RNA sequence: AGCUGUUCCCCUCUGGAGGUUUAAAUUACCUUCACAUCUAAAGGGCCCGAGUUUUCUCGUGGCCCUCUUUUUUUGUCCUGA
Numbered sequence: 001a002g003c004u005g006u007u008c009c010c011c012u013c014u015g016g017a018g019g020u021u022u023a024a025a026u027u028a029c030c031u032u033c034a035c036a037u038c039u040a041a042a043g044g045g046c047c048c049g050a051g052u053u054u055u056c057u058c059g060u061g062g063c064c065c066u067c068u069u070u071u072u073u074u075g076u077c078c079u080g081a
Stems, first nucleotide, its partner, number of pairs: 008018001010016002042066006048059003